[Rfam]
Overview:
The record is a 126-nucleotide sequence from Carlito syrichta, which matches "Small nucleolar RNA SNORA51" in Rfam. From the family's description: ACA51 is a member of the H/ACA class of snoRNA that guide the sites of modification of uridines to pseudouridines. The match comes from Rfam's covariance-model search (105 bits). Gene Ontology terms of the family: nucleolus and RNA processing. NCBI's taxonomy places the organism under Eukaryota, Eumetazoa, Tetrapoda, Eutheria, Carlito. Rfam classes the family as an H/ACA-box small nucleolar RNA. The base pairs follow the family's consensus structure, which was predicted with PFOLD.
RNA sequence: GGCCUCCUGGUGCUUACCACAGGCUGUUAUUACACUGUGUAGAAAAAGGAGGUAGAGCAAAUCUACCCUAUUUACACCUCAGUCCGGGCCCUAUGCCUGGUCUGUAUUGUGAAUGGCGGGGGUGGG
Numbered sequence: 001g002g003c004c005u006c007c008u009g010g011u012g013c014u015u016a017c018c019a020c021a022g023g024c025u026g027u028u029a030u031u032a033c034a035c036u037g038u039g040u041a042g043a044a045a046a047a048g049g050a051g052g053u054a055g056a057g058c059a060a061a062u063c064u065a066c067c068c069u070a071u072u073u074a075c076a077c078c079u080c081a082g083u084c085c086g087g088g089c090c091c092u093a094u095g096c097c098u099g100g101u102c103u104g105u106a107u108u109g110u111g112a113a114u115g116g117c118g119g120g121g122g123u124g125g126g
Base pairs, nucleotide, nucleotide: 002053003052004051005050006049007048008047020037021036022035026033027032066118068116069115070114071113080104081103082102084100085099086098087097088096089095